Record summary: A member of the RNA family "S4-Clostridia ribosomal protein leader", 52 nucleotides long. It is one of the family's seed sequences. The family's consensus secondary structure is taken from published work. Its Rfam clan is "Ribosomal Protein S4 Leader clan". By type it is a cis-regulatory leader.
[Rfam]
RNA sequence: GAAAGGGUGUGGAUACCGAAACACACCUGGGAUUUAAAGAUCCCCUAUUAAA
Numbered sequence: 001g002a003a004a005g006g007g008u009g010u011g012g013a014u015a016c017c018g019a020a021a022c023a024c025a026c027c028u029g030g031g032a033u034u035u036a037a038a039g040a041u042c043c044c045c046u047a048u049u050a051a052a
Base pairs, nucleotide, nucleotide: 005028006027007026008025009024010023011022029044030043031042032041033040034039